[Rfam]
RNA sequence: CUCUUAUCCAGAGUGGUGGAGGGACUGGCCCUAUGAAACCCGGCAACCUAUGAAAUUCAUGAGGUGCUAAAUCCUGCAGAAUACUUCUGAUAGAUAAGAG
Numbered sequence: 001c002u003c004u005u006a007u008c009c010a011g012a013g014u015g016g017u018g019g020a021g022g023g024a025c026u027g028g029c030c031c032u033a034u035g036a037a038a039c040c041c042g043g044c045a046a047c048c049u050a051u052g053a054a055a056u057u058c059a060u061g062a063g064g065u066g067c068u069a070a071a072u073c074c075u076g077c078a079g080a081a082u083a084c085u086u087c088u089g090a091u092a093g094a095u096a097a098g099a100g
Stems, first nucleotide, its partner, number of pairs: 001100008013041001015040003021031003025076001027074002042068004047064002049061004072092001077089005
Rfam assigns this 100-nucleotide RNA sequence from Desulfuribacillus alkaliarsenatis to the family "SAM riboswitch aptamer (S box leader)".
The base pairs follow the family's consensus structure, which is taken from published work.
NCBI's taxonomy places the organism under Bacteria, Bacillati, Bacillota, Desulfuribacillia, Desulfuribacillus.
The SAM riboswitch is found upstream of a number of genes which code for proteins involved in methionine or cysteine biosynthesis in Gram-positive bacteria.